[Rfam]
RNA sequence: GCUGUGUUGCCGCGCUGGUGAAUCUUUGGCUGGAUUCAGCGCGGUGAUGGAGGGCACGUGUUCGCCGCUGCAGGCGGCGGGGUGUGUCGUCGUGGCGUUCGGCGUCCGUGAGUUGGCCCUCUCGGACGCCGUCG
Number, nucleotide and partner (000 for none) at each position: 001g096002c095003u000004g000005u000006g048007u047008u000009g000010c044011c043012g042013c041014g040015c039016u038017g037018g036019u000020g000021a000022a000023u033024c032025u000026u000027u000028g000029g000030c000031u000032g024033g023034a000035u000036u018037c017038a016039g015040c014041g013042c012043g011044g010045u000046g000047a007048u006049g000050g091051a090052g088053g087054g000055c086056a085057c000058g000059u000060g000061u081062u080063c079064g078065c077066c076067g075068c074069u000070g000071c000072a000073g000074g068075c067076g066077g065078c064079g063080g062081g061082g000083u000084g000085u056086g055087u053088c052089g000090u051091c050092g000093u000094g000095g002096c001097g000098u000099u000100c131101g130102g129103c128104g127105u126106c125107c124108g123109u000110g121111a120112g119113u000114u000115g000116g000117c000118c000119c112120u111121c110122u000123c108124g107125g106126a105127c104128g103129c102130c101131g100132u000133c000134g000